A member of the RNA family "Glycine riboswitch aptamer" from Cytobacillus kochii, 96 nucleotides long. The match comes from Rfam's covariance-model search (68 bits).
RNA sequence: AUGAUAGCAAGGGGAGAGACUGCAGUGCUGCAGCGCCGAAGGAGCAAACAAUCAUCGUAUUGUGAAUCUCUCAGGCAAAAGAACACUUGCUUGACG
Dot-bracket structure: .....((((((.(......((((......)))).(((((..(((...(((((......)))))....))))).))).......).)))))).....
Lineage of the source: Bacteria > Bacillati > Bacillota > Bacillaceae > Cytobacillus.